Record summary: mir-8364 microRNA precursor family: a 61-nucleotide RNA sequence from Pristionchus pacificus. Its family is annotated with RISC complex and miRNA-mediated post-transcriptional gene silencing in the Gene Ontology. Pairs were carried over by alignment from the consensus structure, which was predicted with RNAalifold.
RNA sequence: UCUUCAUUUAGCAUUGUCUCUCGCCGGUCAGAGAGGCGAGAGAGUGUGUGAAAUGAAGAGA
Number, nucleotide and partner (000 for none) at each position: 001u059002c058003u057004u056005c055006a054007u053008u000009u000010a000011g000012c048013a047014u046015u000016g000017u043018c000019u041020c040021u039022c038023g000024c000025c000026g000027g000028u000029c000030a000031g000032a000033g000034a000035g000036g000037c000038g022039a021040g020041a019042g000043a017044g000045u000046g014047u013048g012049u000050g000051a000052a000053a007054u006055g005056a004057a003058g002059a001060g000061a000